[Rfam]
RNA sequence: CCUGUGUCUAGAGUCACAUCCUGACGGCUCUCGCCAUGGUGUGCUGGGGCCUCGGAGAGCAUCUGCUGGUCUUGGUUCCCUGGCGAGGGCAAUCAGUGCCCCCAGUAGUGCCCAGAUCAGAAACGCCC
Numbered sequence: 001c002c003u004g005u006g007u008c009u010a011g012a013g014u015c016a017c018a019u020c021c022u023g024a025c026g027g028c029u030c031u032c033g034c035c036a037u038g039g040u041g042u043g044c045u046g047g048g049g050c051c052u053c054g055g056a057g058a059g060c061a062u063c064u065g066c067u068g069g070u071c072u073u074g075g076u077u078c079c080c081u082g083g084c085g086a087g088g089g090c091a092a093u094c095a096g097u098g099c100c101c102c103c104a105g106u107a108g109u110g111c112c113c114a115g116a117u118c119a120g121a122a123a124c125g126c127c128c
Stems, first nucleotide, its partner, number of pairs: 002055003006051001007049002012045002015043006023035001025033002066120007074112001078110001080108003085103001087101004
RNA: Small nucleolar RNA SNORA3/SNORA45 family
Organism: Sousa chinensis